The family of this 46-nucleotide RNA sequence from Desulfonema limicola is "Acido-Lenti-1 RNA". The family's consensus secondary structure is taken from published work. The match comes from Rfam's covariance-model search (47 bits).
RNA sequence: ACCGGCAAUAAAUUGCCGGUCUAUUUUAUGCCGUCCCUGCGGGACU
Numbered sequence: 001a002c003c004g005g006c007a008a009u010a011a012a013u014u015g016c017c018g019g020u021c022u023a024u025u026u027u028a029u030g031c032c033g034u035c036c037c038u039g040c041g042g043g044a045c046u
Stems, first nucleotide, its partner, number of pairs: 001020008033045005